The family of this 55-nucleotide RNA sequence from Leptolyngbya sp. FACHB-16 is "Nitrogen stress-induced RNA 1".
For this family Rfam cites "Heterocyst-specific transcription of NsiR1, a non-coding RNA encoded in a tandem array of direct repeats in cyanobacteria" (Ionescu et al., J Mol Biol, 2010).
[Rfam]
RNA sequence: UGGUAGAUGCACCCUGAUUCAAAGCUCCUGGUUUCGCGGCCAGGGGCUUUCUUUU
Numbered sequence: 001u002g003g004u005a006g007a008u009g010c011a012c013c014c015u016g017a018u019u020c021a022a023a024g025c026u027c028c029u030g031g032u033u034u035c036g037c038g039g040c041c042a043g044g045g046g047c048u049u050u051c052u053u054u055u
Stems, first nucleotide, its partner, number of pairs: 002013003024047010